[Rfam]
RNA sequence: AUGAUUCACCAGGGGUGCUUUGGUUUCUACCAAAGCUGAGAAAGACCCUUAUAACCUGCACUGGGUAAUGCCUGCGGAGGGAGAGUGAGAUUGAUAAAAC
Number, nucleotide and partner (000 for none) at each position: 001a000002u000003g000004a000005u000006u088007c087008a086009c085010c000011a049012g048013g047014g046015g000016u043017g036018c035019u034020u033021u032022g031023g030024u000025u000026u000027c000028u000029a000030c023031c022032a021033a020034a019035g018036c017037u000038g000039a000040g000041a000042a000043a016044g000045a000046c014047c013048c012049u011050u000051a000052u000053a000054a000055c080056c079057u078058g000059c000060a000061c074062u000063g072064g071065g000066u000067a000068a000069u000070g000071c064072c063073u000074g061075c000076g000077g000078a057079g056080g055081g000082a000083g000084a000085g009086u008087g007088a006089g000090a000091u000092u000093g000094a000095u000096a000097a000098a000099a000100c000
RNA: TPP riboswitch aptamer (THI element)